[Rfam]
RNA: Small nucleolar RNA snoR53Y
Organism: Artemisia annua
RNA sequence: GUUCCCAAUGAUGUAUGAAUUUGACCAUGCUAAUUCUGAUACUGAUGAAACAGUUUUGUCAUUUCUGAGGGAACA
Numbered sequence: 001g002u003u004c005c006c007a008a009u010g011a012u013g014u015a016u017g018a019a020u021u022u023g024a025c026c027a028u029g030c031u032a033a034u035u036c037u038g039a040u041a042c043u044g045a046u047g048a049a050a051c052a053g054u055u056u057u058g059u060c061a062u063u064u065c066u067g068a069g070g071g072a073a074c075a
Base pairs, nucleotide, nucleotide: 001074002073003072004071005070